[Rfam]
Nucleotides: 167
Base pairs, nucleotide, nucleotide: 008160009159011153013105015148016147017146020142021141022140026137027136028135029134030133031132032131049123050122051121052120053119055086056085057084058083065076066075067074068073092114093113094112098108099107100106
Number, partner (000 for none) and nucleotide at each position: 001000a002000a003000a004000g005000a006000u007000a008160u009159a010000c011153g012000g013105u014000a015148g016147g017146u018000g019000a020142g021141g022140u023000u024000a025000c026137c027136g028135c029134a030133g031132g032131g033000a034000u035000u036000u037000g038000g039000a040000u041000u042000u043000c044000c045000u046000a047000a048000g049123a050122u051121u052120a053119c054000u055086g056085c057084c058083g059000c060000a061000a062000a063000g064000u065076u066075g067074u068073g069000g070000a071000g072000a073068c074067a075066c076065g077000a078000c079000u080000c081000g082000u083058u084057g085056g086055u087000c088000a089000g090000c091000a092114g093113g094112c095000a096000a097000a098108g099107u100106c101000g102000c103000a104000a105013a106100g107099g108098c109000u110000u111000g112094g113093c114092u115000u116000a117000a118000u119053g120052u121051a122050a123049u124000u125000u126000a127000u128000a129000u130000g131032c132031c133030c134029u135028g136027u137026g138000a139000u140022a141021c142020u143000a144000a145000a146017g147016c148015u149000u150000g151000a152000a153011c154000g155000g156000u157000g158000a159009u160008a161000c162000u163000a164000g165000a166000u167000u
Rfam assigns this 167-nucleotide RNA from Holdemanella biformis to the family "M-box riboswitch aptamer (ykoK leader)".
Lineage of the source: Bacteria > Bacillati > Erysipelotrichaceae > Holdemanella > Holdemanella biformis.
Rfam describes the family as follows. M-box riboswitch, also know as ykoK leader is described as a metaloregulatory RNA that sense divalent metals and function as a genetic control element of genes related to divalent metal transport in bacteria. It was first reported upstream of the B.subtilis ykoK gene and genes with related functions in other bacteria.